[Rfam]
RNA sequence: GUGGAAGGGGCAUGCAGAGGAGCGGCCAUGGCCCAUGAUGGGAGCUUUAUUUGCCUCUCGCUCUCUCCUGUGCCUGCCUCUUCCAUU
Number, nucleotide and partner (000 for none) at each position: 001g086002u085003g084004g083005a082006a081007g080008g079009g078010g077011c076012a075013u000014g073015c072016a071017g000018a069019g068020g067021a066022g065023c000024g064025g063026c000027c000028a000029u000030g000031g000032c000033c000034c000035a000036u000037g000038a000039u000040g000041g000042g000043a000044g000045c000046u000047u000048u000049a000050u000051u000052u000053g000054c000055c000056u000057c000058u000059c000060g000061c000062u000063c025064u024065c022066u021067c020068c019069u018070g000071u016072g015073c014074c000075u012076g011077c010078c009079u008080c007081u006082u005083c004084c003085a002086u001087u000